Rfam assigns this 34-nucleotide sequence from Virgibacillus alimentarius to the family "L31-Firmicutes ribosomal protein leader". A reference for the family is Eckert and Weinberg (2020), "Discovery of 20 novel ribosomal leader candidates in bacteria and archaea", BMC Microbiol. Clan: Ribosomal Protein L31 Leader clan. The base pairs follow the family's consensus structure, which is taken from published work. The organism belongs to Virgibacillus, within Bacteria. The family's RNA type in Rfam is cis-regulatory leader.
[Rfam]
RNA sequence: CUCUGUUUCCAUGGGGAUGCAGGGCAAAAAGGAG
Number, nucleotide and partner (000 for none) at each position: 001c024002u023003c022004u021005g020006u000007u000008u017009c016010c015011a000012u000013g000014g000015g010016g009017a008018u000019g000020c005021a004022g003023g002024g001025c000026a000027a000028a000029a000030a000031g000032g000033a000034g000